[Rfam]
RNA: mraW RNA
RNA sequence: GGGCGGAGAGCGUGUACGGACUCUGCUCGGGGCGCGAGUCGUUCUGGUGUACUUCCCCGAUAUCAGAAUGACCGCCCCGAGCAGGGCUCUACACGUUCCCCGCUAGAGC
Numbered sequence: 001g002g003g004c005g006g007a008g009a010g011c012g013u014g015u016a017c018g019g020a021c022u023c024u025g026c027u028c029g030g031g032g033c034g035c036g037a038g039u040c041g042u043u044c045u046g047g048u049g050u051a052c053u054u055c056c057c058c059g060a061u062a063u064c065a066g067a068a069u070g071a072c073c074g075c076c077c078c079g080a081g082c083a084g085g086g087c088u089c090u091a092c093a094c095g096u097u098c099c100c101c102g103c104u105a106g107a108g109c
Stems, first nucleotide, its partner, number of pairs: 010096007018089002021086014038072013